About this RNA:
Selenocysteine insertion sequence 2: a 55-nucleotide RNA sequence. Gene Ontology term of the family: selenocysteine incorporation. Pairs were carried over by alignment from the consensus structure, which was predicted with RNAalifold. The literature on the family includes a 1996 paper in RNA by Huttenhofer et al., "Solution structure of mRNA hairpins promoting selenocysteine incorporation in Escherichia coli and their base-specific interaction with special elongation factor SELB". It is one of the family's seed sequences.
RNA sequence: GCGUCUGACACGGGCCAUCGGUUGCCGGUCUGCGCCCAUCGGUCGGUGACGGCGC
Numbered sequence: 001g002c003g004u005c006u007g008a009c010a011c012g013g014g015c016c017a018u019c020g021g022u023u024g025c026c027g028g029u030c031u032g033c034g035c036c037c038a039u040c041g042g043u044c045g046g047u048g049a050c051g052g053c054g055c
Base pairs, nucleotide, nucleotide: 001055002054003053004052005051008047009046011045012044013043015041017039018038020036021035022034024033025032